[Rfam]
RNA: Small nucleolar RNA U83B
Organism: Oncorhynchus mykiss
RNA sequence: UGUGUGUGUGAGACCAUGGAACACUGCGUCAGUCAUGGCGUCUGACACGCAUGAAGAUGCAUUCCAUGCUGCCUUCCUGAGACCACA
Numbered sequence: 001u002g003u004g005u006g007u008g009u010g011a012g013a014c015c016a017u018g019g020a021a022c023a024c025u026g027c028g029u030c031a032g033u034c035a036u037g038g039c040g041u042c043u044g045a046c047a048c049g050c051a052u053g054a055a056g057a058u059g060c061a062u063u064c065c066a067u068g069c070u071g072c073c074u075u076c077c078u079g080a081g082a083c084c085a086c087a
Base pairs, nucleotide, nucleotide: 001087002086003085004084